[Rfam]
RNA sequence: GGUCCGAUGCCACGUCGACUGUAGCCAAGAGCAGUGACCGGCGAUGCUAUGAUUGGACCGAAAUAAAUAUAAUGUUUCGCUUGCUGAUAGGAAGCCGUUGAUCUGAUUGAUUGUGAUCUACGGAGCCGUUUUCGGCGAUUACAUAU
Numbered sequence: 001g002g003u004c005c006g007a008u009g010c011c012a013c014g015u016c017g018a019c020u021g022u023a024g025c026c027a028a029g030a031g032c033a034g035u036g037a038c039c040g041g042c043g044a045u046g047c048u049a050u051g052a053u054u055g056g057a058c059c060g061a062a063a064u065a066a067a068u069a070u071a072a073u074g075u076u077u078c079g080c081u082u083g084c085u086g087a088u089a090g091g092a093a094g095c096c097g098u099u100g101a102u103c104u105g106a107u108u109g110a111u112u113g114u115g116a117u118c119u120a121c122g123g124a125g126c127c128g129u130u131u132u133c134g135g136c137g138a139u140u141a142c143a144u145a146u
Stems, first nucleotide, its partner, number of pairs: 002058007009050001013046005021038002024032002077138005090127002095123003100118004

Record summary
Rfam assigns this 146-nucleotide RNA sequence from Hibiscus syriacus to the family "Small nucleolar RNA snoR2/U65". The organism belongs to Hibiscus, within Eukaryota. On this family, see Shaw et al., J Cell Sci 1998: "Localization and processing from a polycistronic precursor of novel snoRNAs in maize".